[Rfam]
RNA sequence: CAACAGCCGAAAGGAGGUGAUCCAGUGUCUCAUUGUCAUCCGCCCCGUAUGAUCGACAGGGCCUGGGUUCCUGCCCUCGCGAAGGAUUUGCGCGCGUAGCGUUCGCUAGAGGCACGAAACACAAGUCCCGGCGGACUCGCGCGGGCCACGACAAUGGAAGAGCCGUUCCCUUCGGGAACGGCUCU
Numbered sequence: 001c002a003a004c005a006g007c008c009g010a011a012a013g014g015a016g017g018u019g020a021u022c023c024a025g026u027g028u029c030u031c032a033u034u035g036u037c038a039u040c041c042g043c044c045c046c047g048u049a050u051g052a053u054c055g056a057c058a059g060g061g062c063c064u065g066g067g068u069u070c071c072u073g074c075c076c077u078c079g080c081g082a083a084g085g086a087u088u089u090g091c092g093c094g095c096g097u098a099g100c101g102u103u104c105g106c107u108a109g110a111g112g113c114a115c116g117a118a119a120c121a122c123a124a125g126u127c128c129c130g131g132c133g134g135a136c137u138c139g140c141g142c143g144g145g146c147c148a149c150g151a152c153a154a155u156g157g158a159a160g161a162g163c164c165g166u167u168c169c170c171u172u173c174g175g176g177a178a179c180g181g182c183u184c185u
Base pairs, nucleotide, nucleotide: 016023017022031156032155033154034153035152036151037150044060045059047057048056061068062067069118071116075112076111079107127145128144129143130142159185160184161183162182163181164180165179166178167177168176169175170174
caulobacter sRNA CC2171: a 185-nucleotide RNA sequence from Roseiarcus fermentans. The family's RNA type in Rfam is small RNA. For this family Rfam cites "Small non-coding RNAs in Caulobacter crescentus" (Landt et al., Mol Microbiol, 2008).